RNA: Selenocysteine transfer RNA
RNA sequence: GCGGAGUGAUCCUCAGUGGUCUGGGGUGCAGGCUUCAAACCUGUAGCUGUCUAGCGACAGUGUUUCAAUUCCACCUUUUGGGC
Numbered sequence: 001g002c003g004g005a006g007u008g009a010u011c012c013u014c015a016g017u018g019g020u021c022u023g024g025g026g027u028g029c030a031g032g033c034u035u036c037a038a039a040c041c042u043g044u045a046g047c048u049g050u051c052u053a054g055c056g057a058c059a060g061u062g063u064u065u066c067a068a069u070u071c072c073a074c075c076u077u078u079u080g081g082g083c
Base pairs, nucleotide, nucleotide: 002081004079005078006077008075011026012025013024014023015022016021027045028044029043030042031041032040047060048059049058050057051056062072